RNA sequence: AUGCCUUAAACUAAUGAGUAAGGAAAAUAGCUGGCCGGUUUGAGACCCGGCUCCUGGACCCUGUCUAGGUUCAAUUUUUGCGGGGUACAGGCUGUCCCUCACGUGGCCCCCUACUUAGGGGUUGCGGAGGCGCUAGCGGCUUGCCC
Numbered sequence: 001a002u003g004c005c006u007u008a009a010a011c012u013a014a015u016g017a018g019u020a021a022g023g024a025a026a027a028u029a030g031c032u033g034g035c036c037g038g039u040u041u042g043a044g045a046c047c048c049g050g051c052u053c054c055u056g057g058a059c060c061c062u063g064u065c066u067a068g069g070u071u072c073a074a075u076u077u078u079u080g081c082g083g084g085g086u087a088c089a090g091g092c093u094g095u096c097c098c099u100c101a102c103g104u105g106g107c108c109c110c111c112u113a114c115u116u117a118g119g120g121g122u123u124g125c126g127g128a129g130g131c132g133c134u135a136g137c138g139g140c141u142u143g144c145c146c
Stems, first nucleotide, its partner, number of pairs: 004023005033052006053069005083146004089142007098130002102126009

Shown here is a 146-nucleotide RNA sequence from Fasciolopsis buskii, a member of the family "U12 minor spliceosomal RNA". A reference for the family is Tarn and Steitz (1997), "Pre-mRNA splicing: the discovery of a new spliceosome doubles the challenge", Trends Biochem Sci. The match comes from Rfam's covariance-model search (87 bits). The pairing is the family consensus, mapped onto this sequence.